[Rfam]
RNA sequence: GCAGGAAUGGCGGAAUGGCAGACGCGCUAGUUUCAGGUUCUAGUGAGAUUUCUCGUGUGGGUUCAAGUCCCAUUUCCUGUA
Numbered sequence: 001g002c003a004g005g006a007a008u009g010g011c012g013g014a015a016u017g018g019c020a021g022a023c024g025c026g027c028u029a030g031u032u033u034c035a036g037g038u039u040c041u042a043g044u045g046a047g048a049u050u051u052c053u054c055g056u057g058u059g060g061g062u063u064c065a066a067g068u069c070c071c072a073u074u075u076c077c078u079g080u081a
Stems, first nucleotide, its partner, number of pairs: 001080007010025003027043004057073005
Rfam assigns this 81-nucleotide sequence from Erysipelatoclostridium sp. An173 to the family "tRNA".
The family's RNA type in Rfam is transfer RNA.
Taxonomically the source falls in Thomasclavelia (Bacteria, Bacillati, Bacillota, Erysipelotrichia).